[Rfam]
RNA sequence: UCGUUAAGCUGUGACGUAAUAGAUAAAGUAUCAUAUUAUCAUGUCUUGUCACCGACACGUUAUUGACACAUUAUUGAAGGUGAUAACAUGACAAUGAGGUGUCCGUGAUAAGACAUGAUGAUGUGAUACUCUAUCUAUUUUGUUAUCACUUAAUGGAA
Numbered sequence: 001u002c003g004u005u006a007a008g009c010u011g012u013g014a015c016g017u018a019a020u021a022g023a024u025a026a027a028g029u030a031u032c033a034u035a036u037u038a039u040c041a042u043g044u045c046u047u048g049u050c051a052c053c054g055a056c057a058c059g060u061u062a063u064u065g066a067c068a069c070a071u072u073a074u075u076g077a078a079g080g081u082g083a084u085a086a087c088a089u090g091a092c093a094a095u096g097a098g099g100u101g102u103c104c105g106u107g108a109u110a111a112g113a114c115a116u117g118a119u120g121a122u123g124u125g126a127u128a129c130u131c132u133a134u135c136u137a138u139u140u141u142g143u144u145a146u147c148a149c150u151u152a153a154u155g156g157a158a
Stems, first nucleotide, its partner, number of pairs: 001156008011146006018139008027130020048109005054103005071086004

Rfam assigns this 158-nucleotide RNA sequence from Glycine max to the family "MIR4371 microRNA precursor family".
Its family is annotated with RISC complex and miRNA-mediated post-transcriptional gene silencing in the Gene Ontology.
A search with the family's covariance model found it, with a score of 129 bits.
Rfam 15.1 lists 321 matches to the family in 4 species.
The family's consensus secondary structure was predicted with RNAalifold.